[Rfam]
RNA: Small Cajal body specific RNA 3
Organism: Camelus dromedarius
RNA sequence: AAUGGAACCUGCAAGACCCAACCAUGUAGACAAAUGAAAAAUGCCUUUUGUCUGCAAAUUGCAGUGAUCCUACAUGAACACGGAGGUCUCUGUCUGGCUUAGGACAGCUGGCUAAGUCUGAUCGUUCCCCUCCGAACAGC
Numbered sequence: 001a002a003u004g005g006a007a008c009c010u011g012c013a014a015g016a017c018c019c020a021a022c023c024a025u026g027u028a029g030a031c032a033a034a035u036g037a038a039a040a041a042u043g044c045c046u047u048u049u050g051u052c053u054g055c056a057a058a059u060u061g062c063a064g065u066g067a068u069c070c071u072a073c074a075u076g077a078a079c080a081c082g083g084a085g086g087u088c089u090c091u092g093u094c095u096g097g098c099u100u101a102g103g104a105c106a107g108c109u110g111g112c113u114a115a116g117u118c119u120g121a122u123c124g125u126u127c128c129c130c131u132c133c134g135a136a137c138a139g140c
Stems, first nucleotide, its partner, number of pairs: 004070003009064004025056007036047002082133005090124001092122003096118007